[Rfam]
RNA: Group II catalytic intron D1-D4-1
Organism: Paenibacillus stellifer
RNA sequence: UAACCGUAGUCGAGAGGCUACGCUGAACUGGCAGGAGUCAGCAGAAGCCAUAGUACGUAAGCUGUUGCAACAGCUUACGGAAGGGC
Numbered sequence: 001u002a003a004c005c006g007u008a009g010u011c012g013a014g015a016g017g018c019u020a021c022g023c024u025g026a027a028c029u030g031g032c033a034g035g036a037g038u039c040a041g042c043a044g045a046a047g048c049c050a051u052a053g054u055a056c057g058u059a060a061g062c063u064g065u066u067g068c069a070a071c072a073g074c075u076u077a078c079g080g081a082a083g084g085g086c
Base pairs, nucleotide, nucleotide: 001025002024005022006021007020008019009018010017011016038045039044047086048085049084056079057078058077059076060075061074062073063072